About this RNA:
This 538-nucleotide part of an RNA from Thermanaerothrix daxensis belongs to the Rfam family "Bacterial small subunit ribosomal RNA". The family has 99 seed sequences and 42,628 matches in Rfam 15.1. Its Rfam clan is "SSU clan".

[Rfam]
RNA sequence: CUUGCGGAGAGUUUGAUCCUGGCUCAGGAUGAACGCUGGCGGCGCGCCUAAUACAUGCAAGUCGAACGGAGUGUGUUCUCGUAACGCACUCAGUGGCGAACGGGUGAGUAACGCGUAGGUGACCUACCCCGAAGAGGGGGAUAACAGCCCGAAAGGGCUGCUAAUACCCCAUGUGGUUCUGUGGGUUAGAGGCCGCAGAACUAAAGGCGUAAGCCGCUUCGGGAUGGGCCUGCGUCCCAUCAGCUAGUUGGUAGGGUAACGGCCUACCAAGGCGAUGACGGGUAGGGGGCCUGAGAGGGUGGCCCCCCACACUGGCACUGAAACACGGGCCAGACACCUACGGGUGGCAGCAGUAGGGAAUAUUGGGCAAUGGGCGAAAGCCUGACCCAGCGACGCCGCGUGCGCGAUGAAGGCCUUCGGGUUGUAAAGCGCUUUUGGAGGGGAUGAGGAAGGACAGUACCCUCCGAAUAAGCCUCGGCUAACUACGUGCCAGCAGCCGCGGUAAAACGUAGGAGGCGAGCGUUAUCCGGAUUUACUG
Dot-bracket structure: ........(((((.......))))).((((.((((((.(((((((((....(((.(((..(((..((.((.((((((.....)))))).)).)))))......(((......((((((((..((...(((((((.((((.....((((((....))))))......)))).....(((((((((........)))))))))....(((....))).)))))))..))))))))))(((....(((..((((((((.......)))))))))))......)))..((((((((....))))...))))))).(((((............))))).((((....))))...)))))).).....(.(((...(((((....))))).)))).)).))))))..((((......((((....)))).....))))....((((((...(........)....))))))......(((((......(((((.....((....)).......)))))))))).))))))))))..........